[Rfam]
RNA sequence: AACAAUAGCAUAAAAGGUAACUCAAGGGUGACGGCAUCAUCCCCAGUAUUUAAGAAAGGGGGUGGUGCUAUGAUAACUGUGUUUGAAGCAUUAUCGCUUAUGCUGACGUUUGGCAUGUUUGUUAUAGCGCUGCUGGCUUUUAACCAAAAAAAAUAAUCCACCCUUGAGUUGGUCGCUCGAGUGGAUUAUUUGUCCAUUUGCUGCCAGUCGCCCUUGUAGGGAACUUAGCUAUUGUAUAGACUAAAGGUGUUAGCGCACCUUUA
Numbered sequence: 001a002a003c004a005a006u007a008g009c010a011u012a013a014a015a016g017g018u019a020a021c022u023c024a025a026g027g028g029u030g031a032c033g034g035c036a037u038c039a040u041c042c043c044c045a046g047u048a049u050u051u052a053a054g055a056a057a058g059g060g061g062g063u064g065g066u067g068c069u070a071u072g073a074u075a076a077c078u079g080u081g082u083u084u085g086a087a088g089c090a091u092u093a094u095c096g097c098u099u100a101u102g103c104u105g106a107c108g109u110u111u112g113g114c115a116u117g118u119u120u121g122u123u124a125u126a127g128c129g130c131u132g133c134u135g136g137c138u139u140u141u142a143a144c145c146a147a148a149a150a151a152a153a154u155a156a157u158c159c160a161c162c163c164u165u166g167a168g169u170u171g172g173u174c175g176c177u178c179g180a181g182u183g184g185a186u187u188a189u190u191u192g193u194c195c196a197u198u199u200g201c202u203g204c205c206a207g208u209c210g211c212c213c214u215u216g217u218a219g220g221g222a223a224c225u226u227a228g229c230u231a232u233u234g235u236a237u238a239g240a241c242u243a244a245a246g247g248u249g250u251u252a253g254c255g256c257a258c259c260u261u262u263a
Stems, first nucleotide, its partner, number of pairs: 002235004007230003016205004021168008030158002037065003041062004077135001079133003088103003113128002171190003211221002242263009

Rfam assigns this 263-nucleotide RNA from Bacilli bacterium VT-13-104 to the family "BsrG". The family's consensus secondary structure was predicted with WAR. About the family: bsrE, bsrG and bsrH pair through intermolecular interactions with antisense sRNAs. They form type I toxin/antitoxin system that includes an mRNA encoding for a short, toxic peptide (bsrE, bsrG and bsrH) and an antitoxin that is comprised of an antisense RNA. bsrG encodes a 39-amino-acid toxin, and the 180 nucleotide antisense sRNA called SR4 acts as the antitoxin (they overlap by 123 nucleotides). SR4 interaction with the 3'UTR of bsrG RNA promotes bsrG degradation and inhibits its translation. BsrG interferes with cell envelope biosynthesis, causes membrane invaginations and delocalisation of the cell wall synthesis and initiates autolysis. bsrE RNA encodes 30 amino-acid toxin peptide. Its antitoxin gene, SR5 overlaps by 112 nucleotides at the 3' end of bsrE. SR5 also overlaps bsrG from nucleotide 163 to 52 (Rfam overlap check). The antitoxin SR5 promotes bsrE degradation but unlike SR4 it does not directly inhibits toxin mRNA translation. Its family is annotated with toxin activity and autolysis in the Gene Ontology.